[Rfam]
RNA sequence: CCAAUGAGGGCAUCCAACGGACUGGCCUCUGUUGGCGCUGCCCAUUUGGCUUACGGAGCUUAGUGCCUUUGCGCACAAACUUUAUGAAGUAUAGUCCACAGCCAAUGCAUUGGAUAUCAAGCCGUGCUAGCGUACUACGAGAAAUCAUAGUACGCCAGGCUGUCGGCAAUUGCAUAUUCCUUGCGUUUCCUGUAGUCACUAUGUGACAGUAAUCAGGGAGAUAAACCAUGCAAUAAACAUUU
Numbered sequence: 001c002c003a004a005u006g007a008g009g010g011c012a013u014c015c016a017a018c019g020g021a022c023u024g025g026c027c028u029c030u031g032u033u034g035g036c037g038c039u040g041c042c043c044a045u046u047u048g049g050c051u052u053a054c055g056g057a058g059c060u061u062a063g064u065g066c067c068u069u070u071g072c073g074c075a076c077a078a079a080c081u082u083u084a085u086g087a088a089g090u091a092u093a094g095u096c097c098a099c100a101g102c103c104a105a106u107g108c109a110u111u112g113g114a115u116a117u118c119a120a121g122c123c124g125u126g127c128u129a130g131c132g133u134a135c136u137a138c139g140a141g142a143a144a145u146c147a148u149a150g151u152a153c154g155c156c157a158g159g160c161u162g163u164c165g166g167c168a169a170u171u172g173c174a175u176a177u178u179c180c181u182u183g184c185g186u187u188u189c190c191u192g193u194a195g196u197c198a199c200u201a202u203g204u205g206a207c208a209g210u211a212a213u214c215a216g217g218g219a220g221a222u223a224a225a226c227c228a229u230g231c232a233a234u235a236a237a238c239a240u241u242u
Base pairs, nucleotide, nucleotide: 001113002112003111004110005109006108008043009042010041011040012039014035015034016033019028020027046105047104048103049102055097056096057095058092061089063085064084169234170233171232172231173230174229175228186220187219188218189217190216191215195207196206197205198204
RNA: Small nucleolar RNA SNORA73 family